[Rfam]
RNA sequence: AAAAAUGAAGGGGGGUGGGGGAAGCAUUCCCCUGCCUAUUUAAAGGAGGAUGCUCAGAUUACGCUAGUAAUCGUCGAAAGGAAC
Number, nucleotide and partner (000 for none) at each position: 001a000002a000003a000004a000005a000006u000007g000008a000009a000010g000011g000012g000013g000014g000015g035016u034017g033018g032019g031020g030021g029022a028023a000024g000025c000026a000027u000028u022029c021030c020031c019032c018033u017034g016035c015036c000037u000038a000039u000040u000041u000042a000043a000044a000045g000046g000047a000048g000049g000050a000051u000052g000053c000054u000055c000056a000057g072058a071059u070060u069061a068062c000063g000064c000065u000066a000067g000068u061069a060070a059071u058072c057073g000074u000075c000076g000077a000078a000079a000080g000081g000082a000083a000084c000

A member of the RNA family "Clostridiales-2 RNA" from Anaeromicrobium sediminis, 84 nucleotides long. NCBI's taxonomy places the organism under Bacteria, Bacillati, Clostridia, Peptostreptococcales, Anaeromicrobium. The family's RNA type in Rfam is small RNA.